RNA: Small nucleolar RNA SNORA38
RNA sequence: CCCCCCUACAAAGGCAUGUCUGUGGUUCUCCAUCUAUGGACACAUGAGAACUGGAGGCAAAGCAAUGUGGAUUUGGGGGAGUCUGCUUGCCUUCCGCGGGUUCCCGCUCGACUAUCCCAUAUAG
Numbered sequence: 001c002c003c004c005c006c007u008a009c010a011a012a013g014g015c016a017u018g019u020c021u022g023u024g025g026u027u028c029u030c031c032a033u034c035u036a037u038g039g040a041c042a043c044a045u046g047a048g049a050a051c052u053g054g055a056g057g058c059a060a061a062g063c064a065a066u067g068u069g070g071a072u073u074u075g076g077g078g079g080a081g082u083c084u085g086c087u088u089g090c091c092u093u094c095c096g097c098g099g100g101u102u103c104c105c106g107c108u109c110g111a112c113u114a115u116c117c118c119a120u121a122u123a124g
Base pairs, nucleotide, nucleotide: 002057003056005054006053017042018041019040020039021038024030025029069117070116071115073114085101086100087099088098089097090096